A member of the RNA family "Group II catalytic intron D1-D4-3" from Ornithinibacillus halotolerans, 220 nucleotides long.
RNA sequence: AACAUUGUGAGGUGUUGUCUGAAGGAGAUGCGGAAAUUCGAGAGAACCGUAGGCGAACAAAUAGACCCUAAUACAAUAAGUGUGAAGCACAACGGCGGGGUAAGUUGGUGACUUUUCGAAAAGUGAGGAAACCCACUAAGAGGCACCUUCUUUAGAAGUCAGAGCGAGAAGGUGUGGCUUAUCACGUGAUGGUGCAGGGUAUGUUUGGAAGGAAUGAGUA
Number, nucleotide and partner (000 for none) at each position: 001a016002a015003c014004a013005u012006u011007g000008u000009g000010a000011g006012g005013u004014g003015u002016u001017g000018u000019c000020u000021g000022a000023a000024g000025g000026a000027g000028a000029u000030g000031c000032g000033g000034a000035a000036a000037u000038u000039c000040g000041a000042g000043a000044g000045a000046a000047c000048c218049g000050u216051a000052g000053g000054c212055g000056a000057a000058c207059a206060a205061a204062u203063a000064g202065a200066c199067c198068c197069u196070a000071a000072u000073a000074c000075a000076a000077u000078a000079a000080g000081u000082g000083u000084g000085a000086a000087g195088c194089a193090c192091a000092a000093c000094g000095g187096c186097g185098g000099g183100g182101u181102a180103a179104g178105u177106u000107g133108g132109u131110g000111a000112c127113u126114u125115u000116u000117c000118g000119a000120a000121a000122a000123g000124u000125g114126a113127g112128g000129a000130a000131a109132c108133c107134c000135a000136c000137u000138a000139a000140g000141a000142g000143g000144c000145a000146c000147c000148u000149u000150c000151u000152u000153u000154a000155g000156a000157a000158g000159u000160c000161a000162g000163a000164g000165c000166g000167a000168g000169a000170a000171g000172g000173u000174g000175u000176g000177g105178c104179u103180u102181a101182u100183c099184a000185c097186g096187u095188g000189a000190u000191g000192g090193u089194g088195c087196a069197g068198g067199g066200u065201a000202u064203g062204u061205u060206u059207g058208g000209a000210a000211g000212g054213a000214a000215u000216g050217a000218g048219u000220a000
The pairing is the family consensus, mapped onto this sequence. A search with the family's covariance model found it, with a score of 39 bits. Group II introns are found in rRNA, tRNA and mRNA of organelles in fungi, plants and protists, and also in mRNA in bacteria.